RNA sequence: AAACGGCUAUGAAGCAAAAGGUUGCCCACACCCAGCCAAGGCGUGAGGAUAUUUUUGUGGAGCAAGUAAACAUCGAUGAAUGUUGCGA
Number, nucleotide and partner (000 for none) at each position: 001a000002a000003a000004c000005g000006g000007c000008u000009a000010u000011g000012a000013a000014g058015c057016a056017a000018a055019a054020g053021g052022u000023u000024g000025c047026c000027c045028a044029c043030a000031c000032c000033c000034a000035g000036c000037c000038a000039a000040g000041g000042c000043g029044u028045g027046a000047g025048g000049a000050u000051a000052u021053u020054u019055u018056u016057g015058u014059g000060g000061a000062g000063c000064a000065a000066g086067u085068a084069a000070a083071c082072a081073u080074c000075g000076a000077u000078g000079a000080a073081u072082g071083u070084u068085g067086c066087g000088a000
Rfam assigns this 88-nucleotide sequence from Criibacterium bergeronii to the family "S10-Clostridia ribosomal protein leader". On this family, see Eckert and Weinberg, BMC Microbiol 2020: "Discovery of 20 novel ribosomal leader candidates in bacteria and archaea". The source organism's lineage runs through Bacteria, Bacillati, Bacillota, Clostridia and Criibacterium. The family's RNA type in Rfam is cis-regulatory leader. The base pairs follow the family's consensus structure, which is taken from published work.